[Rfam]
RNA: Glutamine-II riboswitch aptamer
RNA sequence: UUUCGUUCACCCUUAACUGGGCGCAGUUCGAGCUAUACCAAGGAACGGGGGAUAGC
Dot-bracket structure: ...(((((.(((......)))..........[[[[[.[[...))))).]].]]]]]